RNA sequence: GUGGGUGGAUGGUGUUCAGCACCAAGGACAGGUGUGUUUACCUGUGGGUGGAUGGUGUUCAGCACCAAGGACAGAUGUGUUUACCU
Numbered sequence: 001g002u003g004g005g006u007g008g009a010u011g012g013u014g015u016u017c018a019g020c021a022c023c024a025a026g027g028a029c030a031g032g033u034g035u036g037u038u039u040a041c042c043u044g045u046g047g048g049u050g051g052a053u054g055g056u057g058u059u060c061a062g063c064a065c066c067a068a069g070g071a072c073a074g075a076u077g078u079g080u081u082u083a084c085c086u
Stems, first nucleotide, its partner, number of pairs: 001072002010067007018059007028045007
Dot-bracket structure: ((.......(((((((.(((((((...(((((((....))))))).......))))))).)))))))...))..............

Rfam assigns this 86-nucleotide RNA from Branchiostoma lanceolatum to the family "mir-2060 microRNA precursor family". The family has 7 seed sequences and 3,696 matches in Rfam 15.1. A search with the family's covariance model found it, with a score of 90 bits.